[Rfam]
RNA sequence: AUUAUAUAUUGGCAAACUUACUGAAAGGUAAGGACGCAAAGCUAUAGGGUCUAAGGAUUUUACAAUCUAUGAUCGCCACGCUGCAUAU
Dot-bracket structure: ...........((...((((((....))))))...))..(((..(.(((((....((((....))))...)))..))).)))......
Numbered sequence: 001a002u003u004a005u006a007u008a009u010u011g012g013c014a015a016a017c018u019u020a021c022u023g024a025a026a027g028g029u030a031a032g033g034a035c036g037c038a039a040a041g042c043u044a045u046a047g048g049g050u051c052u053a054a055g056g057a058u059u060u061u062a063c064a065a066u067c068u069a070u071g072a073u074c075g076c077c078a079c080g081c082u083g084c085a086u087a088u
Stems, first nucleotide, its partner, number of pairs: 012037002017032006040082003045078001047077002049073003056067004
Rfam assigns this 88-nucleotide sequence from Pelosinus fermentans to the family "c-di-GMP-I riboswitch aptamer".